Background: The family of this 139-nucleotide RNA from Mesorhizobium denitrificans is "Alphaproteobacterial sRNA ar7".
RNA sequence: CAUCGGCUUCGGCCGAAUCCGGAGUAAGGCCCGUCCCCCGCCUAUACCGGAUGUUUGCGGCAGCCUCAUCCCCCUCUCCGGGCUGCCGCAUUAUUUUAAAAGCGCCGCCGUGGUACCCCCUCCGCCACGGCGGCAUUUU
Numbered sequence: 001c002a003u004c005g006g007c008u009u010c011g012g013c014c015g016a017a018u019c020c021g022g023a024g025u026a027a028g029g030c031c032c033g034u035c036c037c038c039c040g041c042c043u044a045u046a047c048c049g050g051a052u053g054u055u056u057g058c059g060g061c062a063g064c065c066u067c068a069u070c071c072c073c074c075u076c077u078c079c080g081g082g083c084u085g086c087c088g089c090a091u092u093a094u095u096u097u098a099a100a101a102g103c104g105c106c107g108c109c110g111u112g113g114u115a116c117c118c119c120c121u122c123c124g125c126c127a128c129g130g131c132g133g134c135a136u137u138u139u
Stems, first nucleotide, its partner, number of pairs: 018051005024045001028042003056090010105133010